The record is a 370-nucleotide part of an RNA from Abiotrophia defectiva, which matches "Archaeal large subunit ribosomal RNA" in Rfam. The family's consensus secondary structure is taken from published work.
RNA sequence: CGAGAGAACUCUCGUUAAGGAACUCGGCAAAAUGACCCCGUAACUUCGGGAGAAGGGGUGCUGACAGCGAUGUCAGCCGCAGUGAAUAGGCCCAGGCGACUGUUUAUCAAAAACACAGGUCUCUGCAAAAUCGAAAGAUGACGUAUAGGGGCUGACGCCUGCCCGGUGCUGGAAGGUUAAGAGGAGUGCUUAGGCGAAAUCCGAAGGUACGAAUUGAAGCCCCAGUAAACGGCGGCCGUAACUAUAACGGUCCUAAGGUAGCGAAAUUCCUUGUCGGGUAAGUUCCGACCCGCACGAAAGGCGUAACGAUCUGGGCACUGUCUCAACGAGAGACUCGGUGAAAUUAUAGUACCUGUGAAGAUGCAGGUUA
Dot-bracket structure: ((((....((((((((.(((..............(((((....(....).....)))))(((((((....)))))))(...).......(((((((((..(((.........)))..(((((((((...(((....)))...)..))))))))..((((.(((..(((((((..(((....(...............................)....))))))))..)))))((((((.......))))))(...)...............((((((.....))))))..........))))...)).)))))))....))).)))))))).)))).............(((((........)))))..